Rfam assigns this 81-nucleotide RNA from Bos taurus to the family "Small nucleolar RNA SNORD116". The source organism's lineage runs through Eukaryota, Eumetazoa, Laurasiatheria, Ruminantia and Bos.
RNA sequence: GCAUUGAUGAUGACUUUAAAAAUAGAUCUCAUUGGAAUCUGAACAAAAUGAGUGACAAAAUCAGUAUGUGAACUGAGGUCC
Numbered sequence: 001g002c003a004u005u006g007a008u009g010a011u012g013a014c015u016u017u018a019a020a021a022a023u024a025g026a027u028c029u030c031a032u033u034g035g036a037a038u039c040u041g042a043a044c045a046a047a048a049u050g051a052g053u054g055a056c057a058a059a060a061u062c063a064g065u066a067u068g069u070g071a072a073c074u075g076a077g078g079u080c081c
Base pairs, nucleotide, nucleotide: 001081003079004078005077028052029051030050032046033045034044